[Rfam]
RNA sequence: CUGGUGACCUAACACCCGCCCAUCACCACCGGACAGAUUCUGAACUUGUCCUGUGGUGUUUGGUGUGGUUUUGGGGUACGCAG
Numbered sequence: 001c002u003g004g005u006g007a008c009c010u011a012a013c014a015c016c017c018g019c020c021c022a023u024c025a026c027c028a029c030c031g032g033a034c035a036g037a038u039u040c041u042g043a044a045c046u047u048g049u050c051c052u053g054u055g056g057u058g059u060u061u062g063g064u065g066u067g068g069u070u071u072u073g074g075g076g077u078a079c080g081c082a083g
Base pairs, nucleotide, nucleotide: 001083002082003081004079005078006077009074010073011072012071014069015068016067017065018064020063021062024058025057026056027055028054029053031051032050033049034048035047

Shown here is an 83-nucleotide sequence from Lymphocryptovirus humangamma4, a member of the family "mir-BART12 microRNA precursor family". It is one of the family's seed sequences. Rfam 15.1 lists 6 matches to the family in 3 species. For this family Rfam cites "Epstein-Barr virus microRNAs are evolutionarily conserved and differentially expressed" (Cai et al., PLoS Pathog, 2006). NCBI's taxonomy places the organism under Viruses, Heunggongvirae, Peploviricota, Herpesvirales, Lymphocryptovirus humangamma4.